The record is an 85-nucleotide sequence from Tetracentron sinense, which matches "Small nucleolar RNA R11/Z151" in Rfam. Pairs were carried over by alignment from the consensus structure, which was predicted with PFOLD. NCBI's taxonomy places the organism under Eukaryota, Tracheophyta, Magnoliopsida, Trochodendraceae, Tetracentron. Gene Ontology terms of the family: nucleolus and RNA processing.
RNA sequence: GGGCUUAUGAUGAAAAAUGAAAAUAUCUUAGCGGAUUUCAGUGAGAUGAAAGUCAAUGAUCUGAAUGUUACACACACUGAAGCCU
Numbered sequence: 001g002g003g004c005u006u007a008u009g010a011u012g013a014a015a016a017a018u019g020a021a022a023a024u025a026u027c028u029u030a031g032c033g034g035a036u037u038u039c040a041g042u043g044a045g046a047u048g049a050a051a052g053u054c055a056a057u058g059a060u061c062u063g064a065a066u067g068u069u070a071c072a073c074a075c076a077c078u079g080a081a082g083c084c085u
Base pairs, nucleotide, nucleotide: 001085002084003083004082005081